[Rfam]
RNA sequence: GGAGAAAUGGCAGACAGGGAUGCAUUUAGCUUGAAACUAAAUAGAGGAAGGUUCGAAUCCUUUUUUCUCUU
Dot-bracket structure: (((((((..(((........))).(((((.......))))).....(((((.......)))))))))))).